[Rfam]
RNA: sRNA-Xcc1
Organism: Pseudomethylobacillus aquaticus
RNA sequence: GGCCGGGUGUGAGGCUAAUAAAAGACUCCCGCAAGGGGGGAAUACGCCCGCCGUCUGACAGCGGUUUUGAGCCCCCGGCCGCCUUCUC
Numbered sequence: 001g002g003c004c005g006g007g008u009g010u011g012a013g014g015c016u017a018a019u020a021a022a023a024g025a026c027u028c029c030c031g032c033a034a035g036g037g038g039g040g041a042a043u044a045c046g047c048c049c050g051c052c053g054u055c056u057g058a059c060a061g062c063g064g065u066u067u068u069g070a071g072c073c074c075c076c077g078g079c080c081g082c083c084u085u086c087u088c
Stems, first nucleotide, its partner, number of pairs: 001080007009072001013048003016044002026039005050065005
Dot-bracket structure: (((((((.(...(((((........(((((....)))))...)).))).(((((......)))))......).)))))))........